[Rfam]
RNA: Bacterial large subunit ribosomal RNA, nucleotides 1296 to 1615
Nucleotides: 320
Stems, first nucleotide, its partner, number of pairs: 005023006024318004032298004038278002043067006052060002074274004079110002084105003088101001090099003114131005134270004142263003146259002150255005160240003170230005176197006198203001207221002210218001284293002300312004
Number, partner (000 for none) and nucleotide at each position: 001000g002000a003000g004000a005023a006022u007021u008020a009019u010018g011000u012000g013000a014000g015000a016000a017000u018010c019009a020008u021007a022006a023005u024318g025317g026316c027315c028000g029000a030000a031000a032298g033297a034296c035295u036000a037000a038278g039277g040000u041000u042000u043067u044066a045065g046064g047063a048062g049000g050000a051000a052060g053059g054000u055000u056000c057000g058000u059053c060052c061000g062048c063047u064046c065045c066044u067043a068000g069000u070000u071000a072000g073000c074274c075273g076272g077271g078000a079110g080109c081000u082000a083000a084105g085104g086103u087000g088101a089000g090099g091098c092097c093000g094000a095000g096000a097092g098091g099090c100000g101088u102000a103086g104085c105084c106000g107000a108000u109080g110079c111000a112000c113000a114131u115130a116129c117128g118127g119000u120000u121000g122000a123000g124000a125000u126000u127118c128117c129116g130115u131114a132000g133000c134270c135269u136268c137267c138000g139000a140000a141000g142263g143262a144261u145000u146259u147258a148000a149000g150255c151254a152253g153252a154251a155000g156000g157000a158000c159000a160240c161239u162238u163000u164000c165000a166000a167000a168000g169000g170230g171229c172228a173227u174226g175000a176197g177196c178195c179194g180193g181192g182000c183000g184000a185000u186000g187000g188000u189000a190000g191000a192181c193180c194179c195178g196177g197176u198203c199000g200000u201000a202000a203198g204000g205000g206000a207221c208220c209000g210218a211000a212000a213000u214000u215000a216000a217000g218210u219000a220208g221207g222000g223000a224000a225000g226174c227173a228172u229171g230170c231000u232000u233000a234000g235000a236000g237000g238162a239161a240160g241000g242000c243000g244000a245000g246000a247000a248000a249000a250000g251154u252153u253152c254151u255150g256000u257000g258147u259146a260000u261144a262143u263142c264000c265000g266000a267137g268136g269135a270134g271077c272076c273075c274074g275000u276000a277039c278038c279000g280000c281000a282000a283000a284293c285292c286000g287000a288000c289000a290000c291000a292285g293284g294000u295035a296034g297033u298032u299000a300312g301311g302310a303309a304000g305000a306000g307000a308000a309303u310302u311301c312300u313000a314000a315027g316026g317025c318024c319000a320000a